[Rfam]
RNA sequence: AGCAAAAUGAAGAGGUUUUGUAAUCUGAAACUAUCUGAUGUUGAUACAUACAUUCAUGGUCAUGGUCUUCAAAGUUCUCUGAUUACU
Numbered sequence: 001a002g003c004a005a006a007a008u009g010a011a012g013a014g015g016u017u018u019u020g021u022a023a024u025c026u027g028a029a030a031c032u033a034u035c036u037g038a039u040g041u042u043g044a045u046a047c048a049u050a051c052a053u054u055c056a057u058g059g060u061c062a063u064g065g066u067c068u069u070c071a072a073a074g075u076u077c078u079c080u081g082a083u084u085a086c087u
Stems, first nucleotide, its partner, number of pairs: 001087002004084002
RNA: Small nucleolar RNA R160